[Rfam]
RNA sequence: AGUCGUACAAAGACCGCCACGUUGGGGCGCUCCGGACGGGGGUUCGAUUCCCCCCGGCUCCACCAGAUGCCGAUGCCGAAAGACGAGGCGUCGUUAUCUGAUGGGGUCGACCUGGUUUCGACGGGGUGAGGAUACCGAAGCGGACGGCUCGAAAGGUGACGCACGUUAAGCGCACAAUCUUGUAAAUGCAAACGAUCGCAAUUACGCUGUAGCGGCCUAA
Dot-bracket structure: (((((............(.........(((.(((...(((((.......)))))(((((((.........................................)))))))............))).)))........).......)))))((............)).......................................................
Rfam assigns this 220-nucleotide RNA sequence from Robbsia andropogonis to the family "permuted transfer-messenger RNA". The family's RNA type in Rfam is non-coding RNA gene. The organism belongs to Robbsia, within Bacteria. The base pairs follow the family's consensus structure, which is taken from published work. About the family: Bacterial tmRNA, also known as 10Sa RNA or SsrA, is named for its dual tRNA and mRNA-like properties. Its role is to liberate the mRNA from a stalled ribosome. To accomplish this part of the tmRNA is used as a reading frame that ends in a translation stop signal.